[Rfam]
Description
Shown here is a 213-nucleotide RNA from Streptomyces dysideae, a member of the family "Streptomyces RNA 1601". A reference for the family is Vockenhuber et al. (2011), "Deep sequencing-based identification of small non-coding RNAs in Streptomyces coelicolor", RNA Biol. Identified by deep sequencing of transcriptome at the end of exponential growth phase. Appears longer on northern blot than sequencing transcript. Streptomyces specific. By type it is a small RNA.
RNA sequence: AACGACCGGCUGGACAUCACUGUGUCCGGCCAACAAGUGGAGGCUCCGAUCUCCCACCUGACCGUCCCCCGGGACGGCGGGUCACCCGGGUCAGGCGGCCGCCAUCGUUCCGUACGGACGAUGGAGUCGCCCGAAAGUGCGCCCCGCGGCAUCACCGCGGCGGUGCUCCGGCAGUCUUCGGAGUCCCGCCUGUGAUCGUCCGGGGCAAUUUUU
Numbered sequence: 001a002a003c004g005a006c007c008g009g010c011u012g013g014a015c016a017u018c019a020c021u022g023u024g025u026c027c028g029g030c031c032a033a034c035a036a037g038u039g040g041a042g043g044c045u046c047c048g049a050u051c052u053c054c055c056a057c058c059u060g061a062c063c064g065u066c067c068c069c070c071g072g073g074a075c076g077g078c079g080g081g082u083c084a085c086c087c088g089g090g091u092c093a094g095g096c097g098g099c100c101g102c103c104a105u106c107g108u109u110c111c112g113u114a115c116g117g118a119c120g121a122u123g124g125a126g127u128c129g130c131c132c133g134a135a136a137g138u139g140c141g142c143c144c145c146g147c148g149g150c151a152u153c154a155c156c157g158c159g160g161c162g163g164u165g166c167u168c169c170g171g172c173a174g175u176c177u178u179c180g181g182a183g184u185c186c187c188g189c190c191u192g193u194g195a196u197c198g199u200c201c202g203g204g205g206c207a208a209u210u211u212u213u
Stems, first nucleotide, its partner, number of pairs: 004092004008087002012027002028083004034060002037057004041052002062077006094131003098128001102124008141206006147198003156194003159190005165184005